Annotation: This 456-nucleotide sequence from Toxostoma redivivum belongs to the Rfam family "Vertebrate telomerase RNA".
RNA sequence: CCGUGCCGGGGUGGGCAUGCCCUGUGGCCAACUAACCCUAAUGGCGGCCGCGCCCCUCACGCUCGCCCGCUGUUUUACUCGCUGACUUUCAGCGGGCAAAGGGAGCGGCCCUGGGGAAGGGGGUGGUGGUGGGGGGGGAAAAGUUCCGGCCUCAAAAAAAGCCAGCGAUGGGGAUCCACACCCCGGCCCACCCUGGGGUCCCUGUCCCUUCUCCGCAACCGGGGAUGCUCCCGCCAUCGUCCCUCGUGGAGGCCGCGGUCGGCAGGCUCAGCGCCACUACCGCCGCGAAGAGUUCGUCUCUGUCAGCCUUGGCGGAGGCCGGGAGCAGAGGGCCGGCCCGCCCACCCUGGGCAGCCGGGGGACCCCAGCAGAGCAAAAAGGGGCGGCGCUGCCCGGCGCUGAGCAGCCGCAGCUCCCUGAGACGUGGAGUGCGCGGCCGGCGCCGCCCCGACACCC
Numbered sequence: 001c002c003g004u005g006c007c008g009g010g011g012u013g014g015g016c017a018u019g020c021c022c023u024g025u026g027g028c029c030a031a032c033u034a035a036c037c038c039u040a041a042u043g044g045c046g047g048c049c050g051c052g053c054c055c056c057u058c059a060c061g062c063u064c065g066c067c068c069g070c071u072g073u074u075u076u077a078c079u080c081g082c083u084g085a086c087u088u089u090c091a092g093c094g095g096g097c098a099a100a101g102g103g104a105g106c107g108g109c110c111c112u113g114g115g116g117a118a119g120g121g122g123g124u125g126g127u128g129g130u131g132g133g134g135g136g137g138g139a140a141a142a143g144u145u146c147c148g149g150c151c152u153c154a155a156a157a158a159a160a161g162c163c164a165g166c167g168a169u170g171g172g173g174a175u176c177c178a179c180a181c182c183c184c185g186g187c188c189c190a191c192c193c194u195g196g197g198g199u200c201c202c203u204g205u206c207c208c209u210u211c212u213c214c215g216c217a218a219c220c221g222g223g224g225a226u227g228c229u230c231c232c233g234c235c236a237u238c239g240u241c242c243c244u245c246g247u248g249g250a251g252g253c254c255g256c257g258g259u260c261g262g263c264a265g266g267c268u269c270a271g272c273g274c275c276a277c278u279a280c281c282g283c284c285g286c287g288a289a290g291a292g293u294u295c296g297u298c299u300c301u302g303u304c305a306g307c308c309u310u311g312g313c314g315g316a317g318g319c320c321g322g323g324a325g326c327a328g329a330g331g332g333c334c335g336g337c338c339c340g341c342c343c344a345c346c347c348u349g350g351g352c353a354g355c356c357g358g359g360g361g362a363c364c365c366c367a368g369c370a371g372a373g374c375a376a377a378a379a380g381g382g383g384c385g386g387c388g389c390u391g392c393c394c395g396g397c398g399c400u401g402a403g404c405a406g407c408c409g410c411a412g413c414u415c416c417c418u419g420a421g422a423c424g425u426g427g428a429g430u431g432c433g434c435g436g437c438c439g440g441c442g443c444c445g446c447c448c449c450g451a452c453a454c455c456c
Stems, first nucleotide, its partner, number of pairs: 005187009015177001017175002020173004052106002055103002065097008081166004086161001087159003193368007227326007237315005254287005260282003265275003289301004381448010407436004414429001416427002
Rfam's curators write: Telomerase is a ribonucleoprotein reverse transcriptase that synthesises telomeric DNA. Telomerase RNAs differ greatly in sequence and structure between vertebrates, ciliates and yeasts, but they share a 5' pseudoknot structure close to the template sequence. Rfam 15.1 lists 523 matches to the family in 477 species. Pairs were carried over by alignment from the consensus structure, which is taken from published work. NCBI's taxonomy places the organism under Eukaryota, Bilateria, Neoaves, Mimidae, Toxostoma. A search with the family's covariance model found it, with a score of 142 bits. Gene Ontology terms of the family: telomerase catalytic core complex, telomerase activity and telomere maintenance via telomerase. The family is grouped with related families in Rfam's "Telomerase clan". By type it is a non-coding RNA gene.